A member of the RNA family "Bacterial RNase P class A" from Solitalea koreensis, 380 nucleotides long. It is annotated as a ribozyme. A search with the family's covariance model found it, with a score of 256 bits. Taxonomically the source falls in Solitalea (Bacteria, Bacteroidota, Sphingobacteriia, Sphingobacteriales).
RNA sequence: AUUGCAAACUGGUCUGUCGCUCUGAGCAAUCAGGGAGGAAAGUCCGGGCAACAUAGAGCAUCCUGCUUCCUAACAGGAAGGACCCGAAUACUCGGGGACAGCAAGUGCCACAGAAAAUAAACCGCCUAAUCCUGAUAGUUAUCAGGAUUAGGUAAGGGUGAAAACGUGAGGUAAGAGCUCACGGCUUUGUCGCGUAAUCGGCAUCGCGGUAAACCUCAGGAGUUGAAAAACCAAAUAAACCGGAGCUAUAGGGCUGCUCGCCUAAUCCGGAGGGUAGGUUGAUAGAGGUGAAUGGUGACAUUCAUCCCAGAGAAAUGACAGAUAGUCCCUAAACUUGUUUCGGGAGGAAACAGAACCCGGCUUACACGUUUGCAUUUUUU
Numbered sequence: 001a002u003u004g005c006a007a008a009c010u011g012g013u014c015u016g017u018c019g020c021u022c023u024g025a026g027c028a029a030u031c032a033g034g035g036a037g038g039a040a041a042g043u044c045c046g047g048g049c050a051a052c053a054u055a056g057a058g059c060a061u062c063c064u065g066c067u068u069c070c071u072a073a074c075a076g077g078a079a080g081g082a083c084c085c086g087a088a089u090a091c092u093c094g095g096g097g098a099c100a101g102c103a104a105g106u107g108c109c110a111c112a113g114a115a116a117a118u119a120a121a122c123c124g125c126c127u128a129a130u131c132c133u134g135a136u137a138g139u140u141a142u143c144a145g146g147a148u149u150a151g152g153u154a155a156g157g158g159u160g161a162a163a164a165c166g167u168g169a170g171g172u173a174a175g176a177g178c179u180c181a182c183g184g185c186u187u188u189g190u191c192g193c194g195u196a197a198u199c200g201g202c203a204u205c206g207c208g209g210u211a212a213a214c215c216u217c218a219g220g221a222g223u224u225g226a227a228a229a230a231c232c233a234a235a236u237a238a239a240c241c242g243g244a245g246c247u248a249u250a251g252g253g254c255u256g257c258u259c260g261c262c263u264a265a266u267c268c269g270g271a272g273g274g275u276a277g278g279u280u281g282a283u284a285g286a287g288g289u290g291a292a293u294g295g296u297g298a299c300a301u302u303c304a305u306c307c308c309a310g311a312g313a314a315a316u317g318a319c320a321g322a323u324a325g326u327c328c329c330u331a332a333a334c335u336u337g338u339u340u341c342g343g344g345a346g347g348a349a350a351c352a353g354a355a356c357c358c359g360g361c362u363u364a365c366a367c368g369u370u371u372g373c374a375u376u377u378u379u380u
Stems, first nucleotide, its partner, number of pairs: 001376001003374007011365001012323007020035006040363003044360005049225004056259004061221005066080005081099001083096005100216002105214002107210003122157002124153013165183006184205001187203001190200001192198001229280004240270005251263004287306008